A member of the RNA family "SAM riboswitch aptamer (S box leader)" from Clostridium magnum, 113 nucleotides long.
A search with the family's covariance model found it, with a score of 94 bits.
The source organism's lineage runs through Bacteria, Bacillati, Eubacteriales, Clostridium and Clostridium magnum.
Gene Ontology term of the family: regulation of gene expression.
Nucleotides: 113
Stems, first nucleotide, its partner, number of pairs: 001113008013041001015040003021031003025084004042076004047072002050067005080105001085102006
Number, partner (000 for none) and nucleotide at each position: 001113u002112u003111c004110u005109u006108a007107u008106c009000a010000a011000g012000a013041g014000a015040g016039g017038u018000g019000g020000a021031g022030g023029g024000a025084c026083a027082g028081g029023c030022c031021c032000u033000a034000u035000g036000a037000a038017a039016c040015c041013c042076a043075a044074c045073a046000a047072c048071c049000a050067g051066c052065a053064u054063u055000u056000a057000u058000a059000u060000u061000u062000a063054a064053a065052u066051g067050u068000a069000g070000c071048g072047g073045u074044g075043u076042u077000a078000a079000u080105u081028c082027c083026u084025g085102c086101a087100g088099a089098a090097u091000g092000u093000g094000u095000u096000u097090a098089u099088u100087c101086u102085g103000a104000a105080a106008g107007a108006u109005a110004a111003g112002a113001a